[Rfam]
RNA sequence: GUGGCUUUUACAUGUUUUAAAGAUUCAUGCUUUGAAUAAUUCAAAUGUGAAGCUUGUUAUGAAUGUAUCAGCCUACAUUAAAUUUAGUUUCCCUCGCUAUCCUGUUCGUCAAUUACGAUGAUGUUACUUAGGACGUCGGGGAACAAUAUUU
Numbered sequence: 001g002u003g004g005c006u007u008u009u010a011c012a013u014g015u016u017u018u019a020a021a022g023a024u025u026c027a028u029g030c031u032u033u034g035a036a037u038a039a040u041u042c043a044a045a046u047g048u049g050a051a052g053c054u055u056g057u058u059a060u061g062a063a064u065g066u067a068u069c070a071g072c073c074u075a076c077a078u079u080a081a082a083u084u085u086a087g088u089u090u091c092c093c094u095c096g097c098u099a100u101c102c103u104g105u106u107c108g109u110c111a112a113u114u115a116c117g118a119u120g121a122u123g124u125u126a127c128u129u130a131g132g133a134c135g136u137c138g139g140g141g142a143a144c145a146a147u148a149u150u151u
Stems, first nucleotide, its partner, number of pairs: 001076002003073003009067005016061001019058002026056002029053005036048003087144007095135002100133005109121003
Rfam assigns this 151-nucleotide RNA from Schrenkiella parvula to the family "Small nucleolar RNA snoR136". It is annotated as an H/ACA-box small nucleolar RNA. The base pairs follow the family's consensus structure, which was predicted with mfold. The family has 8 seed sequences and 452 matches in Rfam 15.1. The sequence is in the family's curated seed alignment. A reference for the family is Chen and Wu (2009), "Mining small RNA sequencing data: a new approach to identify small nucleolar RNAs in Arabidopsis", Nucleic Acids Res.